[Rfam]
RNA sequence: GGAUCGGGCGGCGGCCUGUGGGAGGGCCGCCAGGGAUUGACCCGGAACCCCCUGUUUCGAGAGCGUGCCCCCCGCGGCCCCGGCGGACGGUAUG
Dot-bracket structure: ((.((....((((((((......)))))))).......)).))....................(((((...(((.........)))...)))))
The record is a 94-nucleotide RNA from Mesobaculum littorinae, which matches "Rhodo-rpoB RNA" in Rfam. The family's RNA type in Rfam is cis-regulatory element.